[Rfam]
RNA: mir-8799 microRNA precursor family
Organism: Canis lupus
RNA sequence: GGGGGGAGUGCCGGAUCCUGGGCUGUGUCCCUGGCGCCCUGUGCUCCCGAGCCUGUGCUAUUGGAAUCGCUCUCCCGGGCCACACAGCCCCCU
Numbered sequence: 001g002g003g004g005g006g007a008g009u010g011c012c013g014g015a016u017c018c019u020g021g022g023c024u025g026u027g028u029c030c031c032u033g034g035c036g037c038c039c040u041g042u043g044c045u046c047c048c049g050a051g052c053c054u055g056u057g058c059u060a061u062u063g064g065a066a067u068c069g070c071u072c073u074c075c076c077g078g079g080c081c082a083c084a085c086a087g088c089c090c091c092c093u
Base pairs, nucleotide, nucleotide: 001093002092003091004090005089006088010085013081014080017078018077020075021074022073025070026069027068028065029064031063032060033059034058035057036056037055041053043052044051045050